[Rfam]
RNA sequence: AAACACACACAUAUACAACAUAACCACCACUUCGGGUUCUAUACCACACCACCAUCCAAACCUAUCAUCAUCAUCAUGUCUCCCUGCGCCUGCAACUGCUGCUCCGGUGAAUGCAAGGGCUGCUCUUGCGAUAGCUGCAAGGUACGUACUACAAGACA
Number, nucleotide and partner (000 for none) at each position: 001a000002a000003a000004c000005a000006c000007a000008c000009a000010c000011a000012u000013a000014u000015a000016c000017a000018a000019c000020a000021u000022a000023a000024c000025c000026a000027c000028c000029a000030c000031u000032u000033c000034g000035g000036g000037u000038u000039c000040u000041a000042u000043a000044c000045c000046a000047c000048a000049c000050c000051a000052c000053c000054a000055u000056c000057c000058a000059a000060a000061c000062c000063u000064a000065u000066c000067a000068u000069c000070a000071u000072c000073a000074u000075c000076a000077u000078g000079u000080c000081u000082c000083c000084c000085u109086g108087c107088g000089c000090c000091u000092g102093c101094a100095a000096c000097u000098g000099c000100u094101g093102c092103u000104c000105c000106g000107g087108u086109g085110a000111a000112u000113g138114c137115a136116a000117g000118g000119g000120c000121u000122g129123c128124u000125c000126u000127u000128g123129c122130g000131a000132u000133a000134g000135c000136u115137g114138c113139a000140a000141g000142g000143u000144a000145c000146g000147u000148a000149c000150u000151a000152c000153a000154a000155g000156a000157c000158a000
This 158-nucleotide sequence from Aspergillus rambellii belongs to the Rfam family "A. fumigatus sRNA Afu_254". Taxonomically the source falls in Aspergillus subgen. Nidulantes (Eukaryota, Dikarya, saccharomyceta, Pezizomycotina). The family's consensus secondary structure was predicted with WAR. For this family Rfam cites "Small ncRNA transcriptome analysis from Aspergillus fumigatus suggests a novel mechanism for regulation of protein synthesis" (Jochl et al., Nucleic Acids Res, 2008). Rfam 15.1 lists 185 matches to the family in 142 species.